[Rfam]
RNA sequence: AUCACUUCUUAGCCUUUUGGCUAAGAUCAAGUGUAGCAUCUGUUCUUAUCAGUUUAAUAUCUGGUAUGUUCUCUAUCCAAGAACAAUAUAUUAAAUGGAUUUUUGAAGCAGGGAGAUGGCAUAGGGGCUUGCUCUGUCCACUCCAUGCAUCAGUAUGGUAUUGUAGAACAGUGCACCCCCU
Numbered sequence: 001a002u003c004a005c006u007u008c009u010u011a012g013c014c015u016u017u018u019g020g021c022u023a024a025g026a027u028c029a030a031g032u033g034u035a036g037c038a039u040c041u042g043u044u045c046u047u048a049u050c051a052g053u054u055u056a057a058u059a060u061c062u063g064g065u066a067u068g069u070u071c072u073c074u075a076u077c078c079a080a081g082a083a084c085a086a087u088a089u090a091u092u093a094a095a096u097g098g099a100u101u102u103u104u105g106a107a108g109c110a111g112g113g114a115g116a117u118g119g120c121a122u123a124g125g126g127g128c129u130u131g132c133u134c135u136g137u138c139c140a141c142u143c144c145a146u147g148c149a150u151c152a153g154u155a156u157g158g159u160a161u162u163g164u165a166g167a168a169c170a171g172u173g174c175a176c177c178c179c180c181u
Stems, first nucleotide, its partner, number of pairs: 007026003011022004047066006068084005112144004118138002124135004147174004
Shown here is a 181-nucleotide sequence from Canis lupus, a member of the family "U2 spliceosomal RNA". The base pairs follow the family's consensus structure, which is taken from published work. For this family Rfam cites "The uRNA database" (Zwieb, Nucleic Acids Res, 1997). Rfam describes the family as follows. U2 is a small nuclear RNA (snRNA) component of the spliceosome (involved in pre-mRNA splicing).